[Rfam]
RNA: Small nucleolar RNA SNORA74
Organism: Tyrannus savana
RNA sequence: CCCAGUGGUAGUCAGCUGCCCGUGGCUACUCAGUGCCUGUGCCAGUGUUAUGCUGCUGGGAGAGAAAGGUACUGCUGAGUCCUCCUGGCACCGCCGGUGCCGUCCUGGUGCUUGGUGGUGCUGGGUUUUGGCAGUGCUCUGCAUGCCUGAGAGUGGAGUAACUCCUGCUUGUGGGGUUAGAGCCUAGAUUGGAUGCAGACAAC
Numbered sequence: 001c002c003c004a005g006u007g008g009u010a011g012u013c014a015g016c017u018g019c020c021c022g023u024g025g026c027u028a029c030u031c032a033g034u035g036c037c038u039g040u041g042c043c044a045g046u047g048u049u050a051u052g053c054u055g056c057u058g059g060g061a062g063a064g065a066a067a068g069g070u071a072c073u074g075c076u077g078a079g080u081c082c083u084c085c086u087g088g089c090a091c092c093g094c095c096g097g098u099g100c101c102g103u104c105c106u107g108g109u110g111c112u113u114g115g116u117g118g119u120g121c122u123g124g125g126u127u128u129u130g131g132c133a134g135u136g137c138u139c140u141g142c143a144u145g146c147c148u149g150a151g152a153g154u155g156g157a158g159u160a161a162c163u164c165c166u167g168c169u170u171g172u173g174g175g176g177u178u179a180g181a182g183c184c185u186a187g188a189u190u191g192g193a194u195g196c197a198g199a200c201a202a203c
Stems, first nucleotide, its partner, number of pairs: 001060009011051002015046004020041001021039002024037003069137009084125009094115002096111001098110004139198006146191001155184002159179007